[Rfam]
RNA sequence: AUGCCUUAAACUUCUGAGUAAGAAAAAAUAACGAUUUGAGUGAUGCCUGAAUCCUCACUGCUAAUGUGAGAUGAGAUGAAUUUCUGAGUGGGUAAAGGUUGCCCCUAAGGUGACCUGCCUGUUUUGUGGGAUCCUUGGGAGUCAGGAUCUGCCUG
Numbered sequence: 001a002u003g004c005c006u007u008a009a010a011c012u013u014c015u016g017a018g019u020a021a022g023a024a025a026a027a028a029u030a031a032c033g034a035u036u037u038g039a040g041u042g043a044u045g046c047c048u049g050a051a052u053c054c055u056c057a058c059u060g061c062u063a064a065u066g067u068g069a070g071a072u073g074a075g076a077u078g079a080a081u082u083u084c085u086g087a088g089u090g091g092g093u094a095a096a097g098g099u100u101g102c103c104c105c106u107a108a109g110g111u112g113a114c115c116u117g118c119c120u121g122u123u124u125u126g127u128g129g130g131a132u133c134c135u136u137g138g139g140a141g142u143c144a145g146g147a148u149c150u151g152c153c154u155g
Base pairs, nucleotide, nucleotide: 005022006021007020008019033053034052035051036050037049038048040046054075055074056073057072089155090154091153092152093151096150097149098148099147100146105139106138108136109135110134112132114130115129116128117127118126